Rfam assigns this 159-nucleotide RNA from Clostridiales bacterium CHKCI001 to the family "Clostridiales-1 RNA". Rfam classes the family as a small RNA. It scores 66 bits against the family's covariance model. NCBI's taxonomy places the organism under Bacteria, Bacillati, Bacillota, Clostridia, Eubacteriales.
Nucleotides: 159
Base pairs, nucleotide, nucleotide: 001159002158003157004156005155006154009066011064013058015056017054018053019052020051021050024047025046026045029042030041031040032039033038070115073112074111075110076109077108080105081104082103083102087098088097089096119149120148121147122146124144129140130139131138132137
Number, partner (000 for none) and nucleotide at each position: 001159u002158a003157u004156a005155a006154a007000a008000g009066u010000c011064c012000u013058g014000c015056a016000g017054c018053c019052a020051u021050g022000a023000u024047c025046c026045a027000a028000a029042c030041c031040g032039u033038g034000u035000u036000u037000a038033c039032a040031c041030g042029g043000a044000a045026u046025g047024g048000u049000a050021c051020a052019u053018g054017g055000a056015u057000a058013u059000u060000a061000g062000a063000u064011g065000u066009g067000c068000u069000a070115g071000c072000c073112u074111g075110u076109a077108u078000g079000a080105a081104c082103a083102a084000g085000a086000a087098g088097a089096g090000c091000g092000a093000c094000a095000a096089c097088u098087c099000g100000g101000a102083u103082u104081g105080u106000g107000a108077a109076u110075a111074c112073a113000u114000a115070u116000g117000a118000c119149g120148a121147u122146u123000a124144u125000g126000a127000g128000a129140g130139c131138a132137c133000u134000a135000a136000a137132g138131u139130g140129c141000a142000g143000a144124g145000c146122a147121a148120u149119c150000a151000a152000c153000u154006u155005u156004u157003a158002u159001a